A member of the RNA family "JUMPstart RNA" from Ewingella americana, 38 nucleotides long. Pairs were carried over by alignment from the consensus structure, which is taken from published work. The match comes from Rfam's covariance-model search (54 bits). NCBI's taxonomy places the organism under Bacteria, Pseudomonadota, Gammaproteobacteria, Yersiniaceae, Ewingella americana. It is annotated as a cis-regulatory element.
RNA sequence: CAGCGUAUUGGUUGCUGUAAACCAGGGGCGGUAGCGUG
Numbered sequence: 001c002a003g004c005g006u007a008u009u010g011g012u013u014g015c016u017g018u019a020a021a022c023c024a025g026g027g028g029c030g031g032u033a034g035c036g037u038g
Stems, first nucleotide, its partner, number of pairs: 008025005